eL15-Euryarchaeota ribosomal protein leader: a 49-nucleotide sequence. The sequence is in the family's curated seed alignment.

RNA sequence: GCGGAUAAGUGUCCGUUGGAAUGUAGCCUAUAAUAGGCUGAACCAUAAA
Numbered sequence: 001g002c003g004g005a006u007a008a009g010u011g012u013c014c015g016u017u018g019g020a021a022u023g024u025a026g027c028c029u030a031u032a033a034u035a036g037g038c039u040g041a042a043c044c045a046u047a048a049a
Stems, first nucleotide, its partner, number of pairs: 001016005017045003025039005

By type it is a cis-regulatory leader.